[Rfam]
RNA sequence: CUGGCCCGUCAUCUGGGGAGUAGCCAGCCGUUCCUUUUUCCGGAACGGGCCAUGCGUCAACAUAUUCGGCUGAGAGGCCGUGGCGCAUGGGGCGCGGCGCAAAGCCGCAUCGGGCGAGACCAAUGGCAUCGACGCGUUC
Numbered sequence: 001c002u003g004g005c006c007c008g009u010c011a012u013c014u015g016g017g018g019a020g021u022a023g024c025c026a027g028c029c030g031u032u033c034c035u036u037u038u039u040c041c042g043g044a045a046c047g048g049g050c051c052a053u054g055c056g057u058c059a060a061c062a063u064a065u066u067c068g069g070c071u072g073a074g075a076g077g078c079c080g081u082g083g084c085g086c087a088u089g090g091g092g093c094g095c096g097g098c099g100c101a102a103a104g105c106c107g108c109a110u111c112g113g114g115c116g117a118g119a120c121c122a123a124u125g126g127c128a129u130c131g132a133c134g135c136g137u138u139c
Stems, first nucleotide, its partner, number of pairs: 028048003050090010067080005091138006
Shown here is a 139-nucleotide sequence from Sphingomonas sp. SKA58, a member of the family "Manganese Mn2+ riboswitch aptamer (yybP-ykoY)". Gene Ontology term of the family: manganese ion binding. The literature on the family includes a 2015 paper in Mol Cell by Price et al., "Mn(2+)-sensing mechanisms of yybP-ykoY orphan riboswitches". Taxonomically the source falls in Sphingomonas (Bacteria, Pseudomonadati, Alphaproteobacteria, Sphingomonadaceae).